[Rfam]
The family of this 158-nucleotide sequence from Tolumonas auensis is "radC RNA". Taxonomically the source falls in Tolumonas auensis (Bacteria, Gammaproteobacteria, Aeromonadaceae, Tolumonas).
RNA sequence: AUCCUGCUGCCAUGUUCGCUGGCGUAGCCGGCAACAUCCCAGGCGGUCAAGGCCAUCGAGACCGCGGCAUGCCGAUCGCGUGCUGGCUUUCAUCCUCUUCCGGACGCACCGCGUCCAUCCAAUCCACCCACUUGGGACAACCCGUCCCCUGUGGCCGG
Numbered sequence: 001a002u003c004c005u006g007c008u009g010c011c012a013u014g015u016u017c018g019c020u021g022g023c024g025u026a027g028c029c030g031g032c033a034a035c036a037u038c039c040c041a042g043g044c045g046g047u048c049a050a051g052g053c054c055a056u057c058g059a060g061a062c063c064g065c066g067g068c069a070u071g072c073c074g075a076u077c078g079c080g081u082g083c084u085g086g087c088u089u090u091c092a093u094c095c096u097c098u099u100c101c102g103g104a105c106g107c108a109c110c111g112c113g114u115c116c117a118u119c120c121a122a123u124c125c126a127c128c129c130a131c132u133u134g135g136g137a138c139a140a141c142c143c144g145u146c147c148c149c150u151g152u153g154g155c156c157g158g
Base pairs, nucleotide, nucleotide: 012037013036014035015033018032019031020030021029022028023027043065044064045063046062047061048060051088052087053086054085066084067083068082069081070080071079072078123158124157130152131151134148135147136146137145

Pairs were carried over by alignment from the consensus structure, which is taken from published work. Rfam 15.1 lists 500 matches to the family in 142 species.